[Rfam]
The family of this 90-nucleotide RNA sequence from Methylovirgula sp. 4M-Z18 is "Glycine riboswitch aptamer". The match comes from Rfam's covariance-model search (67 bits).
RNA sequence: CCACCCUCUGCGGGAGAGUCCGGUUCAUCACCGGCGCCGAAGGCGCAACCGCCCCGGAAACGCUCAGGCAUCAGGACCGCAAGAGGGAUG
Number, nucleotide and partner (000 for none) at each position: 001c000002c000003a000004c000005c000006c085007u084008c083009u081010g080011c079012g078013g077014g000015a000016g000017a000018g000019u000020c034021c033022g032023g031024u000025u000026c000027a000028u000029c000030a000031c023032c022033g021034g020035c000036g069037c068038c067039g065040a064041a000042g000043g063044c062045g061046c000047a000048a000049c057050c056051g000052c000053c000054c000055c000056g050057g049058a000059a000060a000061c045062g044063c043064u040065c039066a000067g038068g037069c036070a000071u000072c000073a000074g000075g000076a000077c013078c012079g011080c010081a009082a000083g008084a007085g006086g000087g000088a000089u000090g000